RNA sequence: ACCUGCAUUCGAAAGUGAUCGAGGUCUGCUGGUGGCCCGGUCAUUGAUAGUGCAGGGAGAGGAACCUGAAGGCAUUUCCCGUGUUCGGGGGGCUGCACCCCCUGCCCCCCGGACCCUGUAGCCCUCAGACA
Numbered sequence: 001a002c003c004u005g006c007a008u009u010c011g012a013a014a015g016u017g018a019u020c021g022a023g024g025u026c027u028g029c030u031g032g033u034g035g036c037c038c039g040g041u042c043a044u045u046g047a048u049a050g051u052g053c054a055g056g057g058a059g060a061g062g063a064a065c066c067u068g069a070a071g072g073c074a075u076u077u078c079c080c081g082u083g084u085u086c087g088g089g090g091g092g093c094u095g096c097a098c099c100c101c102c103u104g105c106c107c108c109c110c111g112g113a114c115c116c117u118g119u120a121g122c123c124c125u126c127a128g129a130c131a
Stems, first nucleotide, its partner, number of pairs: 002056008014045008023037004065128001067127003071123003083114005088108004
This 131-nucleotide sequence from Alectura lathami belongs to the Rfam family "Small nucleolar RNA SNORA71". From the family's description: The members of this family belong to the H/ACA class of snoRNAs which bind a number of proteins (including dyskerin, Gar1p and Nop10p) to form snoRNP complexes. This class of snoRNAs are thought to guide the sites of modification of uridines to pseudouridines by forming direct base pairing interactions with substrate RNAs. NCBI's taxonomy places the organism under Eukaryota, Craniata, Euteleostomi, Sauria, Alectura. Rfam 15.1 lists 1,805 matches to the family in 606 species. The base pairs follow the family's consensus structure, which was predicted with PFOLD. Rfam classes the family as an H/ACA-box small nucleolar RNA. On this family, see Ganot et al., Genes Dev 1997: "The family of box ACA small nucleolar RNAs is defined by an evolutionarily conserved secondary structure and ubiquitous sequence elements essential for RNA accumulation".